The record is a 131-nucleotide sequence from Camelus dromedarius, which matches "Small nucleolar RNA SNORA11" in Rfam. On this family, see Gu et al., Nucleic Acids Res 2005: "A novel experimental approach for systematic identification of box H/ACA snoRNAs from eukaryotes". The family has 35 seed sequences and 2,014 matches in Rfam 15.1. U107 (SNORA11) is a member of the H/ACA class of snoRNAs that guide the sites of modification of uridines to pseudouridines. This snoRNA was identified by RT-PCR from blood cells and its expression confirmed by Northern blot analysis. The family's consensus secondary structure was predicted with RNAalifold. Lineage of the source: Eukaryota > Opisthokonta > Laurasiatheria > Camelidae > Camelus. The family's RNA type in Rfam is H/ACA-box small nucleolar RNA.
RNA sequence: AGGGUGUGGUCAGAGCAGGGGGCCUAAAGAAAUGGCUCCUCUGUUUACAACACACCCAACAGGAAAUUGGGUUCAUUGUGACAAGGGGCACAAAACCUGGGGCCUUCCUAUGAAUAAAAUAUCCUAUAUGU
Dot-bracket structure: .(((((((....((((((((((((.........))).)))))))))....)))))))............((.(...(((..((.(((.(.((.....)).).))).....)).)))....).)).......
Numbered sequence: 001a002g003g004g005u006g007u008g009g010u011c012a013g014a015g016c017a018g019g020g021g022g023c024c025u026a027a028a029g030a031a032a033u034g035g036c037u038c039c040u041c042u043g044u045u046u047a048c049a050a051c052a053c054a055c056c057c058a059a060c061a062g063g064a065a066a067u068u069g070g071g072u073u074c075a076u077u078g079u080g081a082c083a084a085g086g087g088g089c090a091c092a093a094a095a096c097c098u099g100g101g102g103c104c105u106u107c108c109u110a111u112g113a114a115u116a117a118a119a120u121a122u123c124c125u126a127u128a129u130g131u
Stems, first nucleotide, its partner, number of pairs: 002057007013046009022036003070124002073121001077116003082112002085105003089101001091099002